[Rfam]
RNA sequence: AGCUGAUAAAGCCACAACCGUUGCGAGACGGUGUCGGAAAGCCACGAAUCUCCACUGGGAGACAGUCGGGCUACCUGC
Numbered sequence: 001a002g003c004u005g006a007u008a009a010a011g012c013c014a015c016a017a018c019c020g021u022u023g024c025g026a027g028a029c030g031g032u033g034u035c036g037g038a039a040a041g042c043c044a045c046g047a048a049u050c051u052c053c054a055c056u057g058g059g060a061g062a063c064a065g066u067c068g069g070g071c072u073a074c075c076u077g078c
Stems, first nucleotide, its partner, number of pairs: 012037002017032006040072004045068003049062005